RNA: TPP riboswitch aptamer (THI element)
Organism: Lacticaseibacillus nasuensis
RNA sequence: ACCAUCACAAAGGGGAGCCAUUGGCUGAGAGUGGACUUGUCCAGACCCUUCGAACCUGUUCGUUAAUACGAGCGUAGGGAUUGUGUUGGCCGUGCAA
Numbered sequence: 001a002c003c004a005u006c007a008c009a010a011a012g013g014g015g016a017g018c019c020a021u022u023g024g025c026u027g028a029g030a031g032u033g034g035a036c037u038u039g040u041c042c043a044g045a046c047c048c049u050u051c052g053a054a055c056c057u058g059u060u061c062g063u064u065a066a067u068a069c070g071a072g073c074g075u076a077g078g079g080a081u082u083g084u085g086u087u088g089g090c091c092g093u094g095c096a097a
Stems, first nucleotide, its partner, number of pairs: 006085005011049004017025003032043004055078004059072004